Description
The record is a 106-nucleotide sequence from Brevundimonas abyssalis, which matches "Cauldobacter sRNA CC3552" in Rfam. It scores 96 bits against the family's covariance model. The base pairs follow the family's consensus structure, which was predicted with RNAalifold.

RNA sequence: GGAGGCGGCGACGCCCCCCCGACUUGAGACUGGCGCAAGCCAGUCUGUCGCCUCCGCGCCUCAUUCUCGAUGAUGCUGACUUGGGCGGGUCCUUCAUGGACCCGCC
Numbered sequence: 001g002g003a004g005g006c007g008g009c010g011a012c013g014c015c016c017c018c019c020c021g022a023c024u025u026g027a028g029a030c031u032g033g034c035g036c037a038a039g040c041c042a043g044u045c046u047g048u049c050g051c052c053u054c055c056g057c058g059c060c061u062c063a064u065u066c067u068c069g070a071u072g073a074u075g076c077u078g079a080c081u082u083g084g085g086c087g088g089g090u091c092c093u094u095c096a097u098g099g100a101c102c103c104g105c106c
Stems, first nucleotide, its partner, number of pairs: 001055010012021002028045007084106009